Rfam assigns this 290-nucleotide RNA from Amorphotheca resinae to the family "Fungal signal recognition particle RNA". It is annotated as a non-coding RNA gene. The source organism's lineage runs through Eukaryota, Fungi, Leotiomycetes, Helotiales and Amorphotheca resinae. The family's consensus secondary structure is taken from published work. Rfam links the family to the GO terms signal recognition particle, endoplasmic reticulum targeting, SRP-dependent cotranslational protein targeting to membrane, signal sequence recognition and signal recognition particle, plasma membrane targeting. The family has 50 seed sequences and 748 matches in Rfam 15.1.
[Rfam]
Nucleotides: 290
Base pairs, nucleotide, nucleotide: 002014003013004012017287018286019285020284023281025279026278027277028276029275030274040254041253042252043251046249047248048247049246050245051244052243053242054241055240058073059072060071061070063068075232076231077230078229079228080226081225082224084219085218086217087216088215089213090212091211093208094207095206096205097204098203099202100201101200103144105142106141107140108139109137110136111135113131114130115129116128117127119126120125145149153199154198155197156196157195158194159193163192164191165190166189167188172183173182174181
Number, partner (000 for none) and nucleotide at each position: 001000c002014g003013g004012c005000u006000g007000u008000c009000a010000u011000g012004g013003u014002c015000a016000c017287a018286a019285a020284g021000c022000g023281g024000g025279a026278a027277g028276a029275u030274a031000u032000c033000a034000g035000a036000a037000u038000a039000c040254c041253a042252c043251a044000a045000a046249u047248c048247u049246g050245c051244a052243u053242u054241c055240a056000u057000c058073u059072g060071g061070u062000c063068u064000c065000a066000c067000g068063a069000c070061g071060c072059c073058g074000c075232c076231a077230a078229c079228a080226g081225u082224g083000c084219c085218c086217a087216g088215u089213c090212c091211g092000a093208a094207c095206a096205c097204u098203g099202c100201g101200g102000u103144g104000g105142u106141u107140c108139c109137c110136c111135a112000c113131u114130c115129g116128u117127g118000u119126a120125g121000g122000u123000a124000a125120c126119u127117c128116a129115c130114g131113a132000u133000g134000c135111u136110g137109g138000c139108g140107g141106g142105g143000c144103c145149c146000u147000a148000a149145g150000c151000a152000a153199u154198g155197a156196a157195g158194g159193u160000a161000a162000c163192u164191u165190c166189u167188u168000c169000a170000g171000g172183g173182a174181g175000g176000c177000u178000u179000c180000a181174c182173u183172c184000u185000g186000c187000a188167g189166a190165g191164a192163g193159a194158u195157c196156u197155u198154c199153a200101c201100c202099g203098u204097g205096g206095u207094g208093u209000g210000g211091c212090g213089g214000u215088a216087u217086u218085g219084g220000a221000u222000u223000a224082c225081a226080c227000u228079u229078g230077u231076u232075g233000u234000g235000u236000g237000g238000u239000u240055u241054g242053g243052a244051u245050g246049c247048a248047g249046g250000g251043u252042g253041u254040g255000g256000g257000u258000u259000g260000a261000g262000c263000g264000u265000c266000g267000a268000c269000c270000u271000u272000u273000u274030u275029a276028u277027u278026u279025u280000u281023u282000a283000u284020u285019u286018u287017u288000u289000u290000u